Rfam assigns this 69-nucleotide RNA sequence from Bacillus phage Chotacabras to the family "Pistol ribozyme". Rfam links the family to the GO term catalytic activity. The base pairs follow the family's consensus structure, which is taken from published work. It scores 74 bits against the family's covariance model.
RNA sequence: AGUCGUCACAGCGACUAUAAAUAGGCUUUAGGCUGUGAGCGUCGCGGGGUUUAUCUCCCGCGGGUAGCA
Numbered sequence: 001a002g003u004c005g006u007c008a009c010a011g012c013g014a015c016u017a018u019a020a021a022u023a024g025g026c027u028u029u030a031g032g033c034u035g036u037g038a039g040c041g042u043c044g045c046g047g048g049g050u051u052u053a054u055c056u057c058c059c060g061c062g063g064g065u066a067g068c069a
Stems, first nucleotide, its partner, number of pairs: 001016004006038006025068003032040001042063008